[Rfam]
This 117-nucleotide sequence from Trifolium subterraneum belongs to the Rfam family "MIR2593 microRNA precursor family".
RNA sequence: UUAUAAAAGACAUUUCACCUUUCUAGAUUCAUUGAAUAAUUAACGUAUCUGGUUCAUAUUAUAGACCAAAUACGUUAAUUAUUCAAUGAAUCUAGAAAGAUAAAAUGUCUCUUAUAG
Dot-bracket structure: .(((((..(((((.(.(.((((((((.((((((((((((((((((....((((...........))))....)))))))))))))))))).)))))))).).).)))))..))))).
Numbered sequence: 001u002u003a004u005a006a007a008a009g010a011c012a013u014u015u016c017a018c019c020u021u022u023c024u025a026g027a028u029u030c031a032u033u034g035a036a037u038a039a040u041u042a043a044c045g046u047a048u049c050u051g052g053u054u055c056a057u058a059u060u061a062u063a064g065a066c067c068a069a070a071u072a073c074g075u076u077a078a079u080u081a082u083u084c085a086a087u088g089a090a091u092c093u094a095g096a097a098a099g100a101u102a103a104a105a106u107g108u109c110u111c112u113u114a115u116a117g
Stems, first nucleotide, its partner, number of pairs: 002116005009109005015103001017101001019099008028090018050068004
Pairs were carried over by alignment from the consensus structure, which was predicted with RNAalifold. Taxonomically the source falls in Trifolium (Eukaryota, Streptophytina, Mesangiospermae, Hologalegina).